RNA sequence: AAAGCAGGGUUGUGUGUAUCGAAAGUGUUCCUUUGCAAUAUCUAAUUUGGGGAAGGUGGGAAGUUGAGUUUCGUUUUCUAAUUGAUAUCUCAACAAUCAUCUCCCCCACAUUC
Numbered sequence: 001a002a003a004g005c006a007g008g009g010u011u012g013u014g015u016g017u018a019u020c021g022a023a024a025g026u027g028u029u030c031c032u033u034u035g036c037a038a039u040a041u042c043u044a045a046u047u048u049g050g051g052g053a054a055g056g057u058g059g060g061a062a063g064u065u066g067a068g069u070u071u072c073g074u075u076u077u078c079u080a081a082u083u084g085a086u087a088u089c090u091c092a093a094c095a096a097u098c099a100u101c102u103c104c105c106c107c108a109c110a111u112u113c
Stems, first nucleotide, its partner, number of pairs: 004036003007031003049107004054102006063094004

The family of this 113-nucleotide RNA sequence from Coptis chinensis is "small nucleolar RNA snoR135". The family's consensus secondary structure was predicted with RNAalifold. The match comes from Rfam's covariance-model search (80 bits). Taxonomically the source falls in Coptis (Eukaryota, Embryophyta, Mesangiospermae, Coptidoideae). Rfam 15.1 lists 837 matches to the family in 220 species. A reference for the family is Chen and Wu (2009), "Mining small RNA sequencing data: a new approach to identify small nucleolar RNAs in Arabidopsis", Nucleic Acids Res. Rfam classes the family as an H/ACA-box small nucleolar RNA.